This 67-nucleotide sequence from Prevotella multiformis belongs to the Rfam family "lysM-Prevotella RNA". The sequence is in the family's curated seed alignment. The family's consensus secondary structure is taken from published work.
[Rfam]
RNA sequence: CCAAUCGAAAGGGACAUGAAAAACGGUCCCGUGCCGGCAUGGCAUCUGAGUUUAGAAAUAAAACAAC
Numbered sequence: 001c002c003a004a005u006c007g008a009a010a011g012g013g014a015c016a017u018g019a020a021a022a023a024c025g026g027u028c029c030c031g032u033g034c035c036g037g038c039a040u041g042g043c044a045u046c047u048g049a050g051u052u053u054a055g056a057a058a059u060a061a062a063a064c065a066a067c
Base pairs, nucleotide, nucleotide: 011030012029013028014027015026032044033043034042035041

The family's RNA type in Rfam is cis-regulatory element.